[Rfam]
RNA sequence: GGAUAAACGCACGGGAGUCCGGACGAACCGGGCUGAGAGGAGGGCUGUCACGGCCCUCGACCGUAACAGAACCUGAUCCGGGUCAUGCCGGCGAAGGGAGCGAUCGGCCGCAUGAG
Numbered sequence: 001g002g003a004u005a006a007a008c009g010c011a012c013g014g015g016a017g018u019c020c021g022g023a024c025g026a027a028c029c030g031g032g033c034u035g036a037g038a039g040g041a042g043g044g045c046u047g048u049c050a051c052g053g054c055c056c057u058c059g060a061c062c063g064u065a066a067c068a069g070a071a072c073c074u075g076a077u078c079c080g081g082g083u084c085a086u087g088c089c090g091g092c093g094a095a096g097g098g099a100g101c102g103a104u105c106g107g108c109c110g111c112a113u114g115a116g
Stems, first nucleotide, its partner, number of pairs: 006104001008102003011064004017033005040058008072097003078091004
Rfam assigns this 116-nucleotide sequence from Spongiactinospora gelatinilytica to the family "TPP riboswitch aptamer (THI element)". Gene Ontology term of the family: thiamine pyrophosphate binding. Vitamin B(1) in its active form thiamin pyrophosphate (TPP) is an essential coenzyme that is synthesised by coupling of pyrimidine and thiazole moieties in bacteria.